[Rfam]
RNA: M-box riboswitch aptamer (ykoK leader)
RNA sequence: GCAGUAUCUCGUUAGGCGAGGCUCCUAUACAAACACAGGUUACUGAUCUGACGACGUCGAGAGACGCCCAAGAUCAGGACAGGAUAUAUCGAACGAAGGUAUAUCCCCAUGUAACUUCCAAUGUAAGUUGGAUACGUUGUAUAGUGCUAAAACCGAGACGUAGAGAUAGCCA
Numbered sequence: 001g002c003a004g005u006a007u008c009u010c011g012u013u014a015g016g017c018g019a020g021g022c023u024c025c026u027a028u029a030c031a032a033a034c035a036c037a038g039g040u041u042a043c044u045g046a047u048c049u050g051a052c053g054a055c056g057u058c059g060a061g062a063g064a065c066g067c068c069c070a071a072g073a074u075c076a077g078g079a080c081a082g083g084a085u086a087u088a089u090c091g092a093a094c095g096a097a098g099g100u101a102u103a104u105c106c107c108c109a110u111g112u113a114a115c116u117u118c119c120a121a122u123g124u125a126a127g128u129u130g131g132a133u134a135c136g137u138u139g140u141a142u143a144g145u146g147c148u149a150a151a152a153c154c155g156a157g158a159c160g161u162a163g164a165g166a167u168a169g170c171c172a
Base pairs, nucleotide, nucleotide: 005168006167007166008165009164010163011159012158013097015154016153020148021147022146025144026143027142028141029140030139031138032137039115040114041113042112043111045075046074047073048072049071055066056065057064058063082106083105084104085103088100089099090098117132118131119130